[Rfam]
RNA sequence: ACAUUUGCCAGUCUCCGAGUCGUACCGCCUACCAGGGAAAAAUCCUCAUGGCCUGCGACCUGCGGGUGUCGUCGGAAACAGCGGCGCCCUCCUUUGAAAAGGGGAACCUGUGCCUGACCUG
Numbered sequence: 001a002c003a004u005u006u007g008c009c010a011g012u013c014u015c016c017g018a019g020u021c022g023u024a025c026c027g028c029c030u031a032c033c034a035g036g037g038a039a040a041a042a043u044c045c046u047c048a049u050g051g052c053c054u055g056c057g058a059c060c061u062g063c064g065g066g067u068g069u070c071g072u073c074g075g076a077a078a079c080a081g082c083g084g085c086g087c088c089c090u091c092c093u094u095u096g097a098a099a100a101g102g103g104g105a106a107c108c109u110g111u112g113c114c115u116g117a118c119c120u121g
Stems, first nucleotide, its partner, number of pairs: 003115001006112001011107002013104004019059006027052003034046003064089009074079001090097002
Dot-bracket structure: ..(..(....((((((..((((((..(((....(((.......)))...))).))))))....(((((((((.(....).)))))))))((....))...)))).))....)..)......
RNA: Molybdenum/Tungsten riboswitch aptamer (Moco RNA motif)
Organism: Desulfuromonadales bacterium